[Rfam]
RNA sequence: GAGAAGUAGCUCUAAAGCUCAGGAGGGAUAGCGCCAUAACUCAGUCAAUUAGUAUACAUACGUUUGUAUAUAAAUGGCGCCAUCCAUCCUGAGUUCCAUGGCUUCUUCUU
Numbered sequence: 001g002a003g004a005a006g007u008a009g010c011u012c013u014a015a016a017g018c019u020c021a022g023g024a025g026g027g028a029u030a031g032c033g034c035c036a037u038a039a040c041u042c043a044g045u046c047a048a049u050u051a052g053u054a055u056a057c058a059u060a061c062g063u064u065u066g067u068a069u070a071u072a073a074a075u076g077g078c079g080c081c082a083u084c085c086a087u088c089c090u091g092a093g094u095u096c097c098a099u100g101g102c103u104u105c106u107u108c109u110u
Stems, first nucleotide, its partner, number of pairs: 010101001016095009026085004031080005
RNA: MIR390 microRNA precursor family
Organism: Brassica rapa